[Rfam]
RNA sequence: GAAUGAAGAUAGCAUGGUAAGGUGCACAGAGAUCAAUCUCCAAAAGGGUCCUCAUGUCUGCUAACGUUGAUGCCUUUGGGCCUUGAUUUUGUGGGCCUGGUUUGACCUACACUU
Numbered sequence: 001g002a003a004u005g006a007a008g009a010u011a012g013c014a015u016g017g018u019a020a021g022g023u024g025c026a027c028a029g030a031g032a033u034c035a036a037u038c039u040c041c042a043a044a045a046g047g048g049u050c051c052u053c054a055u056g057u058c059u060g061c062u063a064a065c066g067u068u069g070a071u072g073c074c075u076u077u078g079g080g081c082c083u084u085g086a087u088u089u090u091g092u093g094g095g096c097c098u099g100g101u102u103u104g105a106c107c108u109a110c111a112c113u114u
Stems, first nucleotide, its partner, number of pairs: 012025004046098005056087003060081003
About this RNA:
Shown here is a 114-nucleotide sequence from Camphora micrantha, a member of the family "Small nucleolar RNA snoR100". For this family Rfam cites "Experimental RNomics: identification of 140 candidates for small non-messenger RNAs in the plant Arabidopsis thaliana" (Marker et al., Curr Biol, 2002). Gene Ontology terms of the family: nucleolus and RNA processing. A search with the family's covariance model found it, with a score of 88 bits.